[Rfam]
RNA sequence: CACGGUUGGUGGCGCACUUCCUGAUCUCGGGCAGUGUAUUGUGCAUGCUUACCGCACCUGGAUACCCGGCCCGCCUGCAAGCGGGCUUUUUUUU
Numbered sequence: 001c002a003c004g005g006u007u008g009g010u011g012g013c014g015c016a017c018u019u020c021c022u023g024a025u026c027u028c029g030g031g032c033a034g035u036g037u038a039u040u041g042u043g044c045a046u047g048c049u050u051a052c053c054g055c056a057c058c059u060g061g062a063u064a065c066c067c068g069g070c071c072c073g074c075c076u077g078c079a080a081g082c083g084g085g086c087u088u089u090u091u092u093u094u
Stems, first nucleotide, its partner, number of pairs: 009042004014037005020031004068087007
Background: The family of this 94-nucleotide sequence from Citrobacter rodentium is "Tryptophan operon leader". At least 6 amino acid operons are known to be regulated by attenuation. In each a leader sequence of 150-200 bp is found upstream of the first gene in the operon. The organism belongs to Citrobacter rodentium, within Bacteria.